Background:
The record is an 87-nucleotide RNA from Musa troglodytarum, which matches "Small nucleolar RNA R16" in Rfam. It scores 83 bits against the family's covariance model. It is annotated as a C/D-box small nucleolar RNA. Gene Ontology terms of the family: RNA processing and nucleolus. The family's consensus secondary structure was predicted with PFOLD. A reference for the family is Marker et al. (2002), "Experimental RNomics: identification of 140 candidates for small non-messenger RNAs in the plant Arabidopsis thaliana", Curr Biol.

RNA sequence: AGUGGCAAAUGAUGUGAAUUUAAAAUCUUAUCCUACACACUGAAUCAUGGUGUGGACCAUUAACUCCGCUUAUUAUCUGAUGCCCUC
Numbered sequence: 001a002g003u004g005g006c007a008a009a010u011g012a013u014g015u016g017a018a019u020u021u022a023a024a025a026u027c028u029u030a031u032c033c034u035a036c037a038c039a040c041u042g043a044a045u046c047a048u049g050g051u052g053u054g055g056a057c058c059a060u061u062a063a064c065u066c067c068g069c070u071u072a073u074u075a076u077c078u079g080a081u082g083c084c085c086u087c
Base pairs, nucleotide, nucleotide: 004084005083006082007081